[Rfam]
RNA sequence: CCAGGAGAGAGCCGCGCCCCCGAGCGCGGCCGCCGAAGGCGCAGAGGCGGGCCUGAACCCCCGAUCUCGAACGCUCAGGCAGAAGGACUGG
Numbered sequence: 001c002c003a004g005g006a007g008a009g010a011g012c013c014g015c016g017c018c019c020c021c022g023a024g025c026g027c028g029g030c031c032g033c034c035g036a037a038g039g040c041g042c043a044g045a046g047g048c049g050g051g052c053c054u055g056a057a058c059c060c061c062c063g064a065u066c067u068c069g070a071a072c073g074c075u076c077a078g079g080c081a082g083a084a085g086g087a088c089u090g091g
Base pairs, nucleotide, nucleotide: 001091002090003089004088011030012029013028014027015026016025032080033079034078035076036075039074040073041072045067046066

Rfam assigns this 91-nucleotide RNA from Sphaerotilus sulfidivorans to the family "Glycine riboswitch aptamer". Its family is annotated with glycine biosynthetic process in the Gene Ontology.